[Rfam]
This 129-nucleotide RNA sequence from Dreissena polymorpha belongs to the Rfam family "U11 spliceosomal RNA". Taxonomically the source falls in Dreissena (Eukaryota, Spiralia, Lophotrochozoa, Dreissenoidea). A search with the family's covariance model found it, with a score of 75 bits. It is annotated as a spliceosomal small nuclear RNA.

RNA sequence: AAAAAGGGCCUUUGAUGCAAUGUCACAUGGAGUCUUUAUGGACGUUGGGCGGAAUCGCUAGCAAGAGAUUUCGGAGGCGAAAUGUUUGUGAAAAGUGGCAGCUAGUGCUCAAUUAAGCCUGGCGUCCAA
Numbered sequence: 001a002a003a004a005a006g007g008g009c010c011u012u013u014g015a016u017g018c019a020a021u022g023u024c025a026c027a028u029g030g031a032g033u034c035u036u037u038a039u040g041g042a043c044g045u046u047g048g049g050c051g052g053a054a055u056c057g058c059u060a061g062c063a064a065g066a067g068a069u070u071u072c073g074g075a076g077g078c079g080a081a082a083u084g085u086u087u088g089u090g091a092a093a094a095g096u097g098g099c100a101g102c103u104a105g106u107g108c109u110c111a112a113u114u115a116a117g118c119c120u121g122g123c124g125u126c127c128a129a
Base pairs, nucleotide, nucleotide: 008078009077010076011075012074013025014024015023016022017021026049028047029046030045032043033042034041035040050073051072052071053070054069055068056067097126098125099124101123102122103121104120105119107118108117109116
Dot-bracket structure: .......((((((((((...)))))(.(((.((((....)))).))).)(((((((..........))))))))))))..................(((.(((((.(((......)))))))))))...